RNA: terC RNA
RNA sequence: AAGGCGGCCCGGGCCCCUCUGGCAAGACACGUCUUGUGAUGUCGGUCCGCAUCG
Numbered sequence: 001a002a003g004g005c006g007g008c009c010c011g012g013g014c015c016c017c018u019c020u021g022g023c024a025a026g027a028c029a030c031g032u033c034u035u036g037u038g039a040u041g042u043c044g045g046u047c048c049g050c051a052u053c054g
Base pairs, nucleotide, nucleotide: 006048007047009045010044011043012042022037023036024035025034026033027032
Dot-bracket structure: .....((.((((.........((((((....))))))....)))).))......